This 97-nucleotide sequence from Peptoniphilus sp. ING2-D1G belongs to the Rfam family "TPP riboswitch aptamer (THI element)".
[Rfam]
RNA sequence: AAAAAUAUUUAGGGGAGCAGGCGCUGAGAGGAAUUAAUAUUCGACCCUUUAAGCUGAUCCGGAUAAUGCCGGCGUAGCGAAUGUCUUCUCACCUAUU
Numbered sequence: 001a002a003a004a005a006u007a008u009u010u011a012g013g014g015g016a017g018c019a020g021g022c023g024c025u026g027a028g029a030g031g032a033a034u035u036a037a038u039a040u041u042c043g044a045c046c047c048u049u050u051a052a053g054c055u056g057a058u059c060c061g062g063a064u065a066a067u068g069c070c071g072g073c074g075u076a077g078c079g080a081a082u083g084u085c086u087u088c089u090c091a092c093c094u095a096u097u
Base pairs, nucleotide, nucleotide: 007084008083010081011048012047013046014045017024018023031042032041033040034039053078054077055076056075059072060071061070062069